[Rfam]
RNA sequence: UUUACGAGUAGAAGCGGUCAGGGCCUGUGCGCCCGGGACAUUGCUCGGCAA
Numbered sequence: 001u002u003u004a005c006g007a008g009u010a011g012a013a014g015c016g017g018u019c020a021g022g023g024c025c026u027g028u029g030c031g032c033c034c035g036g037g038a039c040a041u042u043g044c045u046c047g048g049c050a051a
Base pairs, nucleotide, nucleotide: 005047006046007045008044009043010042015036018038019037021034022033023032024031
RNA: Xanthine riboswitch aptamer (NMT1 RNA)